[Rfam]
RNA sequence: AGGCUGUAAUGGCUUAUAGUGGAACCAGAUACUUUGAGAUACCUGACCUUGGAACGAAACUUCCUUGCUGUUGGGCACAGAUUGCACGCUUUCCCUUCGUGGAAGUAAAAGAACGGAGAAGAUUCGUCUUCAAAAUUCUGCGCUGUGUCUCCUUUGUUACAACUAUCUUCCGUCCGUCGUUCAAUUAUGCUAUUUCGACAAUUUCUAUUGUGGGAAUAGGCGGGCGGGCACUACAGAACGUGUCCCAGUUUAACCAAUUAAUCGAUCCUUGCGGGUAAUUUUCUUCGUAAAAUAAUGCCCACAAAGUCAAAUUUGUCGACAGUCCAUACGAGUAAUCUAUUGGUUCUGUUUGGUGCAGCAAUGUAGCUUAGCUUAAUCGCUUUGCGUCAACCGCCGUAGGGGAGUUUCAUCCAGCAUCGGCAGGCGUGACCCGUGAUGGAGGCGACUGGGAUUGCACUGUUCUAAGUGUAAAUUUAAAUGCUAAUUCUGAUAUUACUUGUAAUAUUUGAAAUUGGUAGUGUAACGGAGUAUCACUCAUCUUCAAUGAUAGUAUAUUUAUAUGCAUGAGUGUCGAAGGAACCACUAACGAUU
Numbered sequence: 001a002g003g004c005u006g007u008a009a010u011g012g013c014u015u016a017u018a019g020u021g022g023a024a025c026c027a028g029a030u031a032c033u034u035u036g037a038g039a040u041a042c043c044u045g046a047c048c049u050u051g052g053a054a055c056g057a058a059a060c061u062u063c064c065u066u067g068c069u070g071u072u073g074g075g076c077a078c079a080g081a082u083u084g085c086a087c088g089c090u091u092u093c094c095c096u097u098c099g100u101g102g103a104a105g106u107a108a109a110a111g112a113a114c115g116g117a118g119a120a121g122a123u124u125c126g127u128c129u130u131c132a133a134a135a136u137u138c139u140g141c142g143c144u145g146u147g148u149c150u151c152c153u154u155u156g157u158u159a160c161a162a163c164u165a166u167c168u169u170c171c172g173u174c175c176g177u178c179g180u181u182c183a184a185u186u187a188u189g190c191u192a193u194u195u196c197g198a199c200a201a202u203u204u205c206u207a208u209u210g211u212g213g214g215a216a217u218a219g220g221c222g223g224g225c226g227g228g229c230a231c232u233a234c235a236g237a238a239c240g241u242g243u244c245c246c247a248g249u250u251u252a253a254c255c256a257a258u259u260a261a262u263c264g265a266u267c268c269u270u271g272c273g274g275g276u277a278a279u280u281u282u283c284u285u286c287g288u289a290a291a292a293u294a295a296u297g298c299c300c301a302c303a304a305a306g307u308c309a310a311a312u313u314u315g316u317c318g319a320c321a322g323u324c325c326a327u328a329c330g331a332g333u334a335a336u337c338u339a340u341u342g343g344u345u346c347u348g349u350u351u352g353g354u355g356c357a358g359c360a361a362u363g364u365a366g367c368u369u370a371g372c373u374u375a376a377u378c379g380c381u382u383u384g385c386g387u388c389a390a391c392c393g394c395c396g397u398a399g400g401g402g403a404g405u406u407u408c409a410u411c412c413a414g415c416a417u418c419g420g421c422a423g424g425c426g427u428g429a430c431c432c433g434u435g436a437u438g439g440a441g442g443c444g445a446c447u448g449g450g451a452u453u454g455c456a457c458u459g460u461u462c463u464a465a466g467u468g469u470a471a472a473u474u475u476a477a478a479u480g481c482u483a484a485u486u487c488u489g490a491u492a493u494u495a496c497u498u499g500u501a502a503u504a505u506u507u508g509a510a511a512u513u514g515g516u517a518g519u520g521u522a523a524c525g526g527a528g529u530a531u532c533a534c535u536c537a538u539c540u541u542c543a544a545u546g547a548u549a550g551u552a553u554a555u556u557u558a559u560a561u562g563c564a565u566g567a568g569u570g571u572c573g574a575a576g577g578a579a580c581c582a583c584u585a586a587c588g589a590u591u
Base pairs, nucleotide, nucleotide: 001015002014003013004012017585018584019583020582021581022580028572029571030570031569032568033567035537036536037535038532039531040530181527182526185523186522187521188520189519190518191517192516193515194514196213198211199210200209201208202207232466235463236462237461238460239459240457241456242455243454244450245449246448247447248446249445250444266440267439268438269436270435272433273432274431275430313357314355315354316353317352318350319349320348321345322344323343324342326340327339328338330337331336366372367371382429383428384427385426386425387424388423393421394420395419396418401412402411403410
RNA: Fungal signal recognition particle RNA